Rfam assigns this 153-nucleotide RNA to the family "IMES-5 RNA".
The family's RNA type in Rfam is small RNA.

RNA sequence: UAUUGCUGGAAGGAAAUUGGACCUCGAGACCCAGAUUCCUAAAAGAAUGGACAGAAGAAGAAGGGUGAAAAGAAUAAUGAAAAUUAUCCACCUGCGAGUAAAAAAGGGUAUUUACCGCACAGUAAGAAACCCACACUGACCCCUUCAACUUCG
Numbered sequence: 001u002a003u004u005g006c007u008g009g010a011a012g013g014a015a016a017u018u019g020g021a022c023c024u025c026g027a028g029a030c031c032c033a034g035a036u037u038c039c040u041a042a043a044a045g046a047a048u049g050g051a052c053a054g055a056a057g058a059a060g061a062a063g064g065g066u067g068a069a070a071a072g073a074a075u076a077a078u079g080a081a082a083a084u085u086a087u088c089c090a091c092c093u094g095c096g097a098g099u100a101a102a103a104a105a106g107g108g109u110a111u112u113u114a115c116c117g118c119a120c121a122g123u124a125a126g127a128a129a130c131c132c133a134c135a136c137u138g139a140c141c142c143c144u145u146c147a148a149c150u151u152c153g
Stems, first nucleotide, its partner, number of pairs: 001049004006045002015036001017034004054152004060146006074087005093119004098115005120138004